[Rfam]
A member of the RNA family "tRNA" from Rubrobacter tropicus, 72 nucleotides long.
Pairs were carried over by alignment from the consensus structure, which is taken from published work.
Rfam links the family to the GO term triplet codon-amino acid adaptor activity.
From the family's description: Transfer RNA (tRNA) molecules are approximately 80 nucleotides in length.
RNA sequence: GCCCCUGUAGCUCAGUGGUAGAGCACCUCCAUGGUAAGGAGGGGGUCAGCGGUUCAAGUCCGCUCGGGGGCU
Numbered sequence: 001g002c003c004c005c006u007g008u009a010g011c012u013c014a015g016u017g018g019u020a021g022a023g024c025a026c027c028u029c030c031a032u033g034g035u036a037a038g039g040a041g042g043g044g045g046u047c048a049g050c051g052g053u054u055c056a057a058g059u060c061c062g063c064u065c066g067g068g069g070g071c072u
Stems, first nucleotide, its partner, number of pairs: 001071007010024004026042005048064005